[Rfam]
RNA sequence: GCGGAGGGCUGGAUGACCGCGUGGGUCGCAAGGCCCGCGAGGAAAGUCCGGACUCCACAAGGCAACGGUGCCGGGUAACGCCCGGCGGGGGCAACCCCAGGGAAAGCGCCACAGAGAAGAGACCGCCCGCGUCCGCGCGGGUAAGGGUGAAACGGUGGGGUAAGAGCCCACCGGGGGGCUGGCAACAGACCCCGCAUGGCAAGCCCCACCGGGAGCAAUGCCGAAUAGGGAUCUCGCGCCCCGGCAACGGGGCAGGGCGGUCUUGCCCCAGAAGAUCCGGGUUGGCAGCUAGAUCCCGUCGGUAACGGCGGGGGCAGAGGAAUGGUCAUCCAAAGGGGGCAACCCCUUGGACAAAAUCCGGCUUACAGGCUCUCCGCGCGU
Numbered sequence: 001g002c003g004g005a006g007g008g009c010u011g012g013a014u015g016a017c018c019g020c021g022u023g024g025g026u027c028g029c030a031a032g033g034c035c036c037g038c039g040a041g042g043a044a045a046g047u048c049c050g051g052a053c054u055c056c057a058c059a060a061g062g063c064a065a066c067g068g069u070g071c072c073g074g075g076u077a078a079c080g081c082c083c084g085g086c087g088g089g090g091g092c093a094a095c096c097c098c099a100g101g102g103a104a105a106g107c108g109c110c111a112c113a114g115a116g117a118a119g120a121g122a123c124c125g126c127c128c129g130c131g132u133c134c135g136c137g138c139g140g141g142u143a144a145g146g147g148u149g150a151a152a153c154g155g156u157g158g159g160g161u162a163a164g165a166g167c168c169c170a171c172c173g174g175g176g177g178g179c180u181g182g183c184a185a186c187a188g189a190c191c192c193c194g195c196a197u198g199g200c201a202a203g204c205c206c207c208a209c210c211g212g213g214a215g216c217a218a219u220g221c222c223g224a225a226u227a228g229g230g231a232u233c234u235c236g237c238g239c240c241c242c243g244g245c246a247a248c249g250g251g252g253c254a255g256g257g258c259g260g261u262c263u264u265g266c267c268c269c270a271g272a273a274g275a276u277c278c279g280g281g282u283u284g285g286c287a288g289c290u291a292g293a294u295c296c297c298g299u300c301g302g303u304a305a306c307g308g309c310g311g312g313g314g315c316a317g318a319g320g321a322a323u324g325g326u327c328a329u330c331c332a333a334a335g336g337g338g339g340c341a342a343c344c345c346c347u348u349g350g351a352c353a354a355a356a357u358c359c360g361g362c363u364u365a366c367a368g369g370c371u372c373u374c375c376g377c378g379c380g381u
Stems, first nucleotide, its partner, number of pairs: 001377010011366001012330007020039008044364003048361005053215004061263002066211005071085005086100001087098004101206002106204002108200003123146002125142007154172006173195001174193004179188003219287004229278006255268004294313008